[Rfam]
RNA sequence: UCACAAUGCAUCUUGGCACUGGGAGAAUUCACAGUUGAUUCUUAUUCGAUAUUCUGUGGUUCUGCGGGUGCCAAAAUCUAAUGUUU
Numbered sequence: 001u002c003a004c005a006a007u008g009c010a011u012c013u014u015g016g017c018a019c020u021g022g023g024a025g026a027a028u029u030c031a032c033a034g035u036u037g038a039u040u041c042u043u044a045u046u047c048g049a050u051a052u053u054c055u056g057u058g059g060u061u062c063u064g065c066g067g068g069u070g071c072c073a074a075a076a077u078c079u080a081a082u083g084u085u086u
Stems, first nucleotide, its partner, number of pairs: 003084003007080002010077001013074006020067001022065001023063001025062003029059006
Dot-bracket structure: ..(((.((.(..((((((.(.((.(((.((((((...................)))))))))).).).))))))..).)).)))..
RNA: mir-263 microRNA precursor family